[Rfam]
RNA sequence: GACAAAUGAUGACAGGCUAAGUGCGCAACGUCCUGUUGCAACACCUGCCUAACCUGCAUCCUACAGG
Dot-bracket structure: ..........(.((((........(((((.....)))))....)))).)...((((.......))))

This 67-nucleotide RNA sequence from Bacillus mesophilus belongs to the Rfam family "Bacillaceae-1 RNA". The family has 95 seed sequences and 5,721 matches in Rfam 15.1. The base pairs follow the family's consensus structure, which is taken from published work.